A member of the RNA family "rne-II RNA" from Pseudomonas saudiphocaensis, 267 nucleotides long. Lineage of the source: Bacteria > Pseudomonadati > Gammaproteobacteria > Pseudomonadales > Pseudomonas.

RNA sequence: AUGCGUGUUGGGUCGAGAUGCACAGCACCGGAUUGCGUAGCAAAGGCUUACACAGACGUUUCAUUCCGUCCGCUACCGGUGCCUGAUUCCUCCUCCCUUAAGCAUUGCUGCUGUGUUACAGCAAGCAGGAGACGUCGUCGCGACGCCGGCCCAACUGGCCUCACAUCGCUGGACACUGGAGUGCCUGACAAGCCCUCCUGACGCACCUGACACCGACUGCGAGAGUCGUGUGUGCCGAACGCCGUUUCCGGAUGCCACGGAAACCGA
Number, nucleotide and partner (000 for none) at each position: 001a000002u000003g000004c000005g000006u000007g000008u000009u000010g000011g000012g000013u000014c000015g092016a091017g090018a000019u000020g000021c000022a000023c085024a084025g083026c081027a080028c079029c078030g077031g076032a000033u000034u000035g073036c072037g071038u000039a048040g047041c046042a000043a000044a000045g000046g041047c040048u039049u000050a000051c000052a000053c000054a000055g070056a069057c068058g067059u000060u000061u000062c000063a000064u000065u000066c000067c058068g057069u056070c055071c037072g036073c035074u000075a000076c031077c030078g029079g028080u027081g026082c000083c025084u024085g023086a000087u000088u000089c000090c017091u016092c015093c000094u130095c129096c128097c000098u000099u000100a000101a000102g000103c000104a000105u000106u000107g000108c000109u000110g000111c000112u000113g000114u000115g000116u000117u000118a000119c000120a000121g000122c000123a000124a000125g000126c000127a000128g096129g095130a094131g000132a000133c203134g202135u201136c200137g174138u173139c172140g169141c168142g167143a166144c000145g000146c000147c000148g160149g159150c158151c157152c000153a000154a000155c000156u000157g151158g150159c149160c148161u000162c000163a000164c000165a000166u143167c142168g141169c140170u000171g000172g139173a138174c137175a000176c000177u000178g198179g197180a196181g195182u000183g193184c192185c000186u000187g000188a000189c000190a000191a000192g184193c183194c000195c181196u180197c179198c178199u000200g136201a135202c134203g133204c000205a000206c000207c000208u000209g000210a233211c232212a231213c230214c228215g227216a226217c225218u000219g000220c000221g000222a000223g000224a000225g217226u216227c215228g214229u000230g213231u212232g211233u210234g000235c000236c000237g000238a000239a000240c000241g000242c000243c000244g264245u263246u262247u261248c260249c259250g258251g000252a000253u000254g000255c000256c000257a000258c250259g249260g248261a247262a246263a245264c244265c000266g000267a000